[Rfam]
RNA sequence: GAGCGUCGUUGUAUGGAAGACUAGUGAUUUUGUUGUUCUACUUAAGAUGUAACAAGGAAUCACUAAUCAUCCUACAAAGACGCUCG
Numbered sequence: 001g002a003g004c005g006u007c008g009u010u011g012u013a014u015g016g017a018a019g020a021c022u023a024g025u026g027a028u029u030u031u032g033u034u035g036u037u038c039u040a041c042u043u044a045a046g047a048u049g050u051a052a053c054a055a056g057g058a059a060u061c062a063c064u065a066a067u068c069a070u071c072c073u074a075c076a077a078a079g080a081c082g083c084u085c086g
Stems, first nucleotide, its partner, number of pairs: 001084001006080002009077005015071002019068002024063007033055005
The record is an 86-nucleotide RNA sequence from Nasonia longicornis, which matches "mir-7 microRNA precursor family" in Rfam. The family's consensus secondary structure was predicted with PFOLD. The literature on the family includes a 2001 paper in Cell by Ambros, "microRNAs: tiny regulators with great potential". This family represents the microRNA (miRNA) precursor mir-7. Gene Ontology terms of the family: RISC complex and miRNA-mediated post-transcriptional gene silencing.